[Rfam]
The family of this 139-nucleotide RNA sequence from Aegilops tauschii is "Small nucleolar RNA Z247". The source organism's lineage runs through Eukaryota, Viridiplantae, Streptophyta, Liliopsida and Aegilops tauschii.
RNA sequence: CUGAUCGGUGAUGAUGAACUGUCCUCCUACAUCACCGUCGGCCUCGACAUGGAGUAUCAGCCUCUCAUCUCCGCCAACGACGCCCGCACCGAGCCCAUCAGCCUCGACGACCUCUUCGCUCAGAUGAGCAGCUUUGAUU
Numbered sequence: 001c002u003g004a005u006c007g008g009u010g011a012u013g014a015u016g017a018a019c020u021g022u023c024c025u026c027c028u029a030c031a032u033c034a035c036c037g038u039c040g041g042c043c044u045c046g047a048c049a050u051g052g053a054g055u056a057u058c059a060g061c062c063u064c065u066c067a068u069c070u071c072c073g074c075c076a077a078c079g080a081c082g083c084c085c086g087c088a089c090c091g092a093g094c095c096c097a098u099c100a101g102c103c104u105c106g107a108c109g110a111c112c113u114c115u116u117c118g119c120u121c122a123g124a125u126g127a128g129c130a131g132c133u134u135u136g137a138u139u
Stems, first nucleotide, its partner, number of pairs: 004138005090106004
Gene Ontology terms of the family: RNA processing and nucleolus. A reference for the family is Chen et al. (2003), "The high diversity of snoRNAs in plants: identification and comparative study of 120 snoRNA genes from Oryza sativa", Nucleic Acids Res. The match comes from Rfam's covariance-model search (47 bits).